[Rfam]
RNA sequence: GAGCCAGCUUAGCCCAGUGGUUCCAUCGACCAAUGCAUUGCUUGGAUCCCCCAAUCGCCUCCAGCGGUUUGAGACCCACGAGCGCUGCCUGGCUUUUUA
Numbered sequence: 001g002a003g004c005c006a007g008c009u010u011a012g013c014c015c016a017g018u019g020g021u022u023c024c025a026u027c028g029a030c031c032a033a034u035g036c037a038u039u040g041c042u043u044g045g046a047u048c049c050c051c052c053a054a055u056c057g058c059c060u061c062c063a064g065c066g067g068u069u070u071g072a073g074a075c076c077c078a079c080g081a082g083c084g085c086u087g088c089c090u091g092g093c094u095u096u097u098u099a
Stems, first nucleotide, its partner, number of pairs: 002094006012083002015080001017079004026072004
Rfam assigns this 99-nucleotide RNA from Podarcis lilfordi to the family "Vault RNA". The family's RNA type in Rfam is non-coding RNA gene. The base pairs follow the family's consensus structure, which is taken from published work. About the family: This family of RNAs are found as part of the enigmatic vault ribonucleoprotein complex. The complex consists of a major vault protein (MVP), two minor vault proteins (VPARP and TEP1), and several small untranslated RNA molecules. Lineage of the source: Eukaryota > Teleostomi > Tetrapoda > Sauropsida > Podarcis.